[Rfam]
RNA: MIR2119 microRNA precursor family
RNA sequence: AAAUAUGAAUUAUCAAUGGUGUUACUCCUAUACUUCAUUUUUUAUACUAAAAUACUCCCUACCUUUCUUUUAUUGGAAAGUAAGAGAGACAAAAAAAGUGCCUAUUUCUCUUGGUUUUUUCAAUCAAAGGGAGGUGUGGAGUAGAGGUGUAAGAAGUAAAGUAU
Numbered sequence: 001a002a003a004u005a006u007g008a009a010u011u012a013u014c015a016a017u018g019g020u021g022u023u024a025c026u027c028c029u030a031u032a033c034u035u036c037a038u039u040u041u042u043u044a045u046a047c048u049a050a051a052a053u054a055c056u057c058c059c060u061a062c063c064u065u066u067c068u069u070u071u072a073u074u075g076g077a078a079a080g081u082a083a084g085a086g087a088g089a090c091a092a093a094a095a096a097a098g099u100g101c102c103u104a105u106u107u108c109u110c111u112u113g114g115u116u117u118u119u120u121c122a123a124u125c126a127a128a129g130g131g132a133g134g135u136g137u138g139g140a141g142u143a144g145a146g147g148u149g150u151a152a153g154a155a156g157u158a159a160a161g162u163a164u
Stems, first nucleotide, its partner, number of pairs: 053143006060136011072124003076121005082112007
Dot-bracket structure: ....................................................((((((.(((((((((((.(((.(((((.(((((((.................)))))))....)))))))).))))))))))).)))))).....................